[Rfam]
MIR1435 microRNA precursor family: a 198-nucleotide RNA from Oryza punctata. Gene Ontology terms of the family: miRNA-mediated post-transcriptional gene silencing and RISC complex.
RNA sequence: UGACUUUUUUCUUAAUCAAACUUUUUUAAGUUUGAUCAAGUUUAUAGAAAAGAUAGAAACAUUUUCAGCCCAAAAUAAACAUAUAUCAAAAUAUAUUAAAUGUUAGUUUUAAUGAAACUAAUUUUGUGUUGUAGAUGUUAUUAAAUUUUUCUAUAAACUUGGUUAAACUUAAAUAAGUUUGAUUAGGAUAAAAAUUAA
Numbered sequence: 001u002g003a004c005u006u007u008u009u010u011c012u013u014a015a016u017c018a019a020a021c022u023u024u025u026u027u028a029a030g031u032u033u034g035a036u037c038a039a040g041u042u043u044a045u046a047g048a049a050a051a052g053a054u055a056g057a058a059a060c061a062u063u064u065u066c067a068g069c070c071c072a073a074a075a076u077a078a079a080c081a082u083a084u085a086u087c088a089a090a091a092u093a094u095a096u097u098a099a100a101u102g103u104u105a106g107u108u109u110u111a112a113u114g115a116a117a118c119u120a121a122u123u124u125u126g127u128g129u130u131g132u133a134g135a136u137g138u139u140a141u142u143a144a145a146u147u148u149u150u151c152u153a154u155a156a157a158c159u160u161g162g163u164u165a166a167a168c169u170u171a172a173a174u175a176a177g178u179u180u181g182a183u184u185a186g187g188a189u190a191a192a193a194a195u196u197a198a
Base pairs, nucleotide, nucleotide: 005193006192007191008190011187012186013185014184015183016182017181018180019179020178021177022176023175025173026172031167032166033165034164035163045153046152047151048150049149050148051147052146054143055142056141058139059138060137061136062135063134064133066131067130071126072125073124074123075122076121